Shown here is an 85-nucleotide sequence from Paenibacillus protaetiae, a member of the family "ZMP/ZTP riboswitch aptamer (pfl RNA motif)". The family's consensus secondary structure is taken from published work. The organism belongs to Paenibacillus, within Bacteria. Gene Ontology terms of the family: one-carbon metabolic process and regulation of purine nucleotide biosynthetic process.
RNA sequence: ACAGCGGUAUGCGACUGGCGAUGAAAGUGGAAUCAACCACAAGGAAGCAUACGGCUUGAUCGUGCCGUUCGCCUGGGGAAAGUAU
Numbered sequence: 001a002c003a004g005c006g007g008u009a010u011g012c013g014a015c016u017g018g019c020g021a022u023g024a025a026a027g028u029g030g031a032a033u034c035a036a037c038c039a040c041a042a043g044g045a046a047g048c049a050u051a052c053g054g055c056u057u058g059a060u061c062g063u064g065c066c067g068u069u070c071g072c073c074u075g076g077g078g079a080a081a082g083u084a085u
Base pairs, nucleotide, nucleotide: 003056004055005054007052008051009050010049011048012047015044016043017073018072019071020070021069027040028039029038030037063079065077066076